A member of the RNA family "DUF3800-I RNA", 106 nucleotides long. Pairs were carried over by alignment from the consensus structure, which is taken from published work. Rfam's curators write: Actinobacteria, Firmicutes, Fusobacteria, Proteobacteria (1 example), Tenericutes (2 examples). The family's RNA type in Rfam is small RNA. Rfam's curators put it in the seed alignment.

[Rfam]
RNA sequence: UUUUAGUACCAAUUUCGAUGCUGUAUAUCUGUGUCACUGAAUGAAAGUUUAAGCAUUAUAUAAGAACGCCAGCUACAGAGCCACCAAUCAGGUGGUAUUUUUUUAA
Numbered sequence: 001u002u003u004u005a006g007u008a009c010c011a012a013u014u015u016c017g018a019u020g021c022u023g024u025a026u027a028u029c030u031g032u033g034u035c036a037c038u039g040a041a042u043g044a045a046a047g048u049u050u051a052a053g054c055a056u057u058a059u060a061u062a063a064g065a066a067c068g069c070c071a072g073c074u075a076c077a078g079a080g081c082c083a084c085c086a087a088u089c090a091g092g093u094g095g096u097a098u099u100u101u102u103u104u105a106a
Stems, first nucleotide, its partner, number of pairs: 007025003012019002028079006037072003040049003053069002056066002080096006